[Rfam]
RNA sequence: UUUAGUGGGUAGCCUAAUUCAAAUUCAUGAAAGCUGGAUUUGGAACGGAGGAACCAAUGUUUGGGGCUAAUCUUGCAGAGAGCGGCAAUUUAAGAGUAAAAAGUUUUAACUCAGCACUCAGCACUCCUAAGAGAGAGACACCUUCCAGUCUUAGCCCGUCAGCUAACUCCGUAGGCAAUGGAAGGAACCCCC
Numbered sequence: 001u002u003u004a005g006u007g008g009g010u011a012g013c014c015u016a017a018u019u020c021a022a023a024u025u026c027a028u029g030a031a032a033g034c035u036g037g038a039u040u041u042g043g044a045a046c047g048g049a050g051g052a053a054c055c056a057a058u059g060u061u062u063g064g065g066g067c068u069a070a071u072c073u074u075g076c077a078g079a080g081a082g083c084g085g086c087a088a089u090u091u092a093a094g095a096g097u098a099a100a101a102a103g104u105u106u107u108a109a110c111u112c113a114g115c116a117c118u119c120a121g122c123a124c125u126c127c128u129a130a131g132a133g134a135g136a137g138a139c140a141c142c143u144u145c146c147a148g149u150c151u152u153a154g155c156c157c158g159u160c161a162g163c164u165a166a167c168u169c170c171g172u173a174g175g176c177a178a179u180g181g182a183a184g185g186a187a188c189c190c191c192c
Base pairs, nucleotide, nucleotide: 012176013175014174018044019043020042021041022040023039024038025037026036027035045172046171047170048169049168050167055063056062064157065156066155072133073132074131136151137150138149139148
Notes:
This 192-nucleotide RNA from Nostoc sp. 'Peltigera malacea cyanobiont' DB3992 belongs to the Rfam family "c-di-AMP riboswitch aptamer (ydaO/yuaA leader)". It scores 56 bits against the family's covariance model. Rfam's curators write: This family represents a conserved RNA structure found upstream of the ydaO and yuaA genes in Bacillus subtilis and related genes in other bacteria. Its family is annotated with cyclic-di-AMP binding and regulation of gene expression in the Gene Ontology. Taxonomically the source falls in Nostoc cyanobionts (Bacteria, Nostocales, Nostocaceae, Nostoc).